[Rfam]
RNA: MIR2593 microRNA precursor family
RNA sequence: UUAUAAGCAAAAGUUAUUUUUUAGAUUCAUUGAAUAAUUGAUGAAUGUGGACUAUAUUAUAGACCAAAUUCAUCAGUUAUUCAAUGAACCUAAAAAGUAACUUUUACUUAUAA
Numbered sequence: 001u002u003a004u005a006a007g008c009a010a011a012a013g014u015u016a017u018u019u020u021u022u023a024g025a026u027u028c029a030u031u032g033a034a035u036a037a038u039u040g041a042u043g044a045a046u047g048u049g050g051a052c053u054a055u056a057u058u059a060u061a062g063a064c065c066a067a068a069u070u071c072a073u074c075a076g077u078u079a080u081u082c083a084a085u086g087a088a089c090c091u092a093a094a095a096a097g098u099a100a101c102u103u104u105u106a107c108u109u110a111u112a113a
Stems, first nucleotide, its partner, number of pairs: 002112006009105005015099010026088018048066003